[Rfam]
RNA sequence: UUUGUCAACGGUACCGGACCGAAGGGAGGAUAAGGAGUUGACAAACCCUCCAUA
Numbered sequence: 001u002u003u004g005u006c007a008a009c010g011g012u013a014c015c016g017g018a019c020c021g022a023a024g025g026g027a028g029g030a031u032a033a034g035g036a037g038u039u040g041a042c043a044a045a046c047c048c049u050c051c052a053u054a
Base pairs, nucleotide, nucleotide: 001045002044003043004042005041006040007039008038009037
The family of this 54-nucleotide sequence from Aquibacillus salsiterrae is "Bacillus-plasmid RNA". A search with the family's covariance model found it, with a score of 58 bits.